[Rfam]
RNA sequence: AUGUUGUUCUGUCUGUUUCCAUAGCUUAUAUUGUAAGGUACUUAUAAGCUCGUGAACAACAGGCAGGACAACUG
Numbered sequence: 001a002u003g004u005u006g007u008u009c010u011g012u013c014u015g016u017u018u019c020c021a022u023a024g025c026u027u028a029u030a031u032u033g034u035a036a037g038g039u040a041c042u043u044a045u046a047a048g049c050u051c052g053u054g055a056a057c058a059a060c061a062g063g064c065a066g067g068a069c070a071a072c073u074g
Stems, first nucleotide, its partner, number of pairs: 003072009013062005018055002023050008033041002